[Rfam]
RNA sequence: AACAAUGCUGUCUAGGGUUCCGUUUAAUAGCUUAUAUUAAAGCCAGGUCCGAGAGAGAGCGUACGGAAAUUUCGUAUACACGGAAGGACAAAAGCCUGGGAGAA
Number, nucleotide and partner (000 for none) at each position: 001a000002a000003c000004a000005a000006u000007g060008c059009u058010g000011u056012c055013u000014a000015g050016g049017g000018u000019u000020c047021c046022g044023u041024u040025u039026a038027a037028u036029a000030g000031c000032u000033u000034a000035u000036a028037u027038u026039a025040a024041a023042g000043c000044c022045a000046g021047g020048u000049c016050c015051g000052a000053g000054a000055g012056a011057g000058a009059g008060c007061g077062u076063a075064c074065g073066g072067a071068a000069a000070u000071u067072u066073c065074g064075u063076a062077u061078a000079c099080a000081c102082g000083g000084a000085a097086g096087g095088a000089c000090a000091a000092a000093a000094g000095c087096c086097u085098g000099g079100g000101a000102g081103a000104a000
About this RNA: Rfam assigns this 104-nucleotide RNA from Terrilactibacillus tamarindi to the family "Guanidine-I riboswitch aptamer". The organism belongs to Terrilactibacillus, within Bacteria. Rfam links the family to the GO term regulation of gene expression. Pairs were carried over by alignment from the consensus structure.